[Rfam]
RNA sequence: AUGCUUGCCCCAUGUUCGUCGGCGUUGCCGGCACAUGCCCAGGCAGUCGAGACCUUCGAGGCUGCAAGCGCGGGAAACCGUGCUGGUCGUUUCUUCCUACGGACCUACCGCGUCCAUCCACGCCACCCACAAGGGACCUCUCCCUUGCGGGC
Numbered sequence: 001a002u003g004c005u006u007g008c009c010c011c012a013u014g015u016u017c018g019u020c021g022g023c024g025u026u027g028c029c030g031g032c033a034c035a036u037g038c039c040c041a042g043g044c045a046g047u048c049g050a051g052a053c054c055u056u057c058g059a060g061g062c063u064g065c066a067a068g069c070g071c072g073g074g075a076a077a078c079c080g081u082g083c084u085g086g087u088c089g090u091u092u093c094u095u096c097c098u099a100c101g102g103a104c105c106u107a108c109c110g111c112g113u114c115c116a117u118c119c120a121c122g123c124c125a126c127c128c129a130c131a132a133g134g135g136a137c138c139u140c141u142c143c144c145u146u147g148c149g150g151g152c
Stems, first nucleotide, its partner, number of pairs: 011037005018032006043065006051088004067084007122152003130147007
Dot-bracket structure: ..........(((((..((((((...))))))))))).....((((((..[[[[.....)))))).(((((((....)))))))]]]].................................(((.....(((((((....)))))))..)))
This 152-nucleotide sequence from Acidovorax sp. JS42 belongs to the Rfam family "radC RNA". Lineage of the source: Bacteria > Pseudomonadati > Pseudomonadota > Burkholderiales > Acidovorax. The family's consensus secondary structure is taken from published work. It is annotated as a cis-regulatory element.